[Rfam]
RNA sequence: CACUCCUGUUUCUGCCCCAUUUUCUUUUCACUUUCCAUGGAUUACUGGGUUCUAAUUAUGGAGAAGAUCAAGCUGAUCAAUGAAUCACCUUAAUGAUUUGAUACUUCGUUAUAACCGAUUUAUUGAUUGGAUCGUGUGAAUGAUUUUUACGUUUCUAAGAGGGAAAACAUGCUUAGUGAUGUUCUUCCUCGUUAGUUAAGAAUCUCACUAUAUUU
Numbered sequence: 001c002a003c004u005c006c007u008g009u010u011u012c013u014g015c016c017c018c019a020u021u022u023u024c025u026u027u028u029c030a031c032u033u034u035c036c037a038u039g040g041a042u043u044a045c046u047g048g049g050u051u052c053u054a055a056u057u058a059u060g061g062a063g064a065a066g067a068u069c070a071a072g073c074u075g076a077u078c079a080a081u082g083a084a085u086c087a088c089c090u091u092a093a094u095g096a097u098u099u100g101a102u103a104c105u106u107c108g109u110u111a112u113a114a115c116c117g118a119u120u121u122a123u124u125g126a127u128u129g130g131a132u133c134g135u136g137u138g139a140a141u142g143a144u145u146u147u148u149a150c151g152u153u154u155c156u157a158a159g160a161g162g163g164a165a166a167a168c169a170u171g172c173u174u175a176g177u178g179a180u181g182u183u184c185u186u187c188c189u190c191g192u193u194a195g196u197u198a199a200g201a202a203u204c205u206c207a208c209u210a211u212a213u214u215u
Stems, first nucleotide, its partner, number of pairs: 003063004016049004020044001023041003073130014090111001092109001136208004142204005155195004162188001166183005
Background: Rfam assigns this 215-nucleotide sequence from Pachysolen tannophilus to the family "Small nucleolar RNA snR43". The match comes from Rfam's covariance-model search (118 bits). Rfam classes the family as an H/ACA-box small nucleolar RNA.